A member of the RNA family "miR-430 microRNA precursor family" from Salvelinus namaycush, 70 nucleotides long. The organism belongs to Salvelinus, within Eukaryota. The match comes from Rfam's covariance-model search (67 bits). Clan: mir-290 clan. The literature on the family includes a 2005 paper in Science by Giraldez et al., "MicroRNAs regulate brain morphogenesis in zebrafish".
[Rfam]
RNA sequence: AAUUGUACCCGAACACUAGCAUUGACUUGUAUAUAUAAUGCAGUAAGUGCUACUUGUUGGGGUAGUUUUG
Numbered sequence: 001a002a003u004u005g006u007a008c009c010c011g012a013a014c015a016c017u018a019g020c021a022u023u024g025a026c027u028u029g030u031a032u033a034u035a036u037a038a039u040g041c042a043g044u045a046a047g048u049g050c051u052a053c054u055u056g057u058u059g060g061g062g063u064a065g066u067u068u069u070g
Base pairs, nucleotide, nucleotide: 006064007063008062009061010060013057014056015055018051019050020049021048022047023046025044026043027042